[Rfam]
RNA sequence: UAUUUCUAAAACAACAAAAGCCCUACCUCUCAUUUGUCCUUGCGGCUCCGAUGACCGCGCCAGUGUGAAUCAGAAAAACGUCCAAAUU
Numbered sequence: 001u002a003u004u005u006c007u008a009a010a011a012c013a014a015c016a017a018a019a020g021c022c023c024u025a026c027c028u029c030u031c032a033u034u035u036g037u038c039c040u041u042g043c044g045g046c047u048c049c050g051a052u053g054a055c056c057g058c059g060c061c062a063g064u065g066u067g068a069a070u071c072a073g074a075a076a077a078a079c080g081u082c083c084a085a086a087u088u
Base pairs, nucleotide, nucleotide: 034068035067036066039063040062041059042058043057044056045055047053
The record is an 88-nucleotide RNA sequence from Paenibacillus sp. oral taxon 786, which matches "BsrC" in Rfam. Rfam classes the family as a small RNA. The family's consensus secondary structure was predicted with CMfinder. A search with the family's covariance model found it, with a score of 74 bits. For this family Rfam cites "Novel small RNA-encoding genes in the intergenic regions of Bacillus subtilis" (Saito et al., Gene, 2008).